Bacterial large signal recognition particle RNA: a 244-nucleotide RNA from Clostridium botulinum. The family's consensus secondary structure is taken from published work. It is annotated as a non-coding RNA gene.
RNA sequence: CCGUGCUAGAUGGGGAGUUAGCGGUGCCCUGUAACCUGCAAUCCGCUACAGCAGGGUUGAAUUCUUCGCCUAGGCUUUAACUUGUGGGGUCUGGCCUGUAAAAGUGGUGUUGAUAAUUGGGUCCCACGCAACGAAAAUUCAUGAACUCCGUCAGAUCCGGAAGGAAGCAGCGGUAAGUGAACACUUUCGUGUGCCGUGGAUAAACCUGAUUUGAGCUAACUGUACAGGUAACGCUCAUAAGUUA
Numbered sequence: 001c002c003g004u005g006c007u008a009g010a011u012g013g014g015g016a017g018u019u020a021g022c023g024g025u026g027c028c029c030u031g032u033a034a035c036c037u038g039c040a041a042u043c044c045g046c047u048a049c050a051g052c053a054g055g056g057u058u059g060a061a062u063u064c065u066u067c068g069c070c071u072a073g074g075c076u077u078u079a080a081c082u083u084g085u086g087g088g089g090u091c092u093g094g095c096c097u098g099u100a101a102a103a104g105u106g107g108u109g110u111u112g113a114u115a116a117u118u119g120g121g122u123c124c125c126a127c128g129c130a131a132c133g134a135a136a137a138u139u140c141a142u143g144a145a146c147u148c149c150g151u152c153a154g155a156u157c158c159g160g161a162a163g164g165a166a167g168c169a170g171c172g173g174u175a176a177g178u179g180a181a182c183a184c185u186u187u188c189g190u191g192u193g194c195c196g197u198g199g200a201u202a203a204a205c206c207u208g209a210u211u212u213g214a215g216c217u218a219a220c221u222g223u224a225c226a227g228g229u230a231a232c233g234c235u236c237a238u239a240a241g242u243u244a
Stems, first nucleotide, its partner, number of pairs: 009058003012030004017025003035055005079243004084238005092233002095228006103221002106217003115211008124199005129191002132189005138181005148173004156165003